[Rfam]
Background:
Rfam assigns this 73-nucleotide RNA sequence from Danio rerio to the family "mir-148/mir-152 microRNA precursor family". Pairs were carried over by alignment from the consensus structure, which was predicted with RNAalifold. Rfam links the family to the GO terms miRNA-mediated post-transcriptional gene silencing and RISC complex. The literature on the family includes a 2002 paper in Curr Biol by Lagos-Quintana et al., "Identification of tissue-specific microRNAs from mouse".
RNA sequence: UCCAAGUAAAGUUCUGUGAUACACUCCGACUCUGAAUGUUUGCAGUCAGUGCAUUACAGAACUUUGUUUUGGG
Numbered sequence: 001u002c003c004a005a006g007u008a009a010a011g012u013u014c015u016g017u018g019a020u021a022c023a024c025u026c027c028g029a030c031u032c033u034g035a036a037u038g039u040u041u042g043c044a045g046u047c048a049g050u051g052c053a054u055u056a057c058a059g060a061a062c063u064u065u066g067u068u069u070u071g072g073g
Base pairs, nucleotide, nucleotide: 004069005068006067007066008065009064010063011062012061013060014059015058016057022051023050024049025048028047029046030045031044